[Rfam]
RNA sequence: AACAGUGGCUUCUGCCAUGAGCGGCACACACAGGGCAACUUGCUCGCUUUGAGUGUGGAAUCGACAUCAAGAGAUUUCGGAAGAGUAAUUUUUUGGUAUUUGGGCAGCUGGUGAUUGUUGGUCCUGGCGCCCUU
Numbered sequence: 001a002a003c004a005g006u007g008g009c010u011u012c013u014g015c016c017a018u019g020a021g022c023g024g025c026a027c028a029c030a031c032a033g034g035g036c037a038a039c040u041u042g043c044u045c046g047c048u049u050u051g052a053g054u055g056u057g058g059a060a061u062c063g064a065c066a067u068c069a070a071g072a073g074a075u076u077u078c079g080g081a082a083g084a085g086u087a088a089u090u091u092u093u094u095g096g097u098a099u100u101u102g103g104g105c106a107g108c109u110g111g112u113g114a115u116u117g118u119u120g121g122u123c124c125u126g127g128c129g130c131c132c133u134u
Base pairs, nucleotide, nucleotide: 009083010082011081012080013026014025015024016023027055028054029053031051032050033049034048035047036046038044056079057078058077059076060075061074062073102132103131104130105129107128108127109126110125111124113123114122115121116120
Rfam assigns this 134-nucleotide RNA from Fukomys damarensis to the family "U11 spliceosomal RNA".
The organism belongs to Fukomys, within Eukaryota.
The base pairs follow the family's consensus structure, which is taken from published work.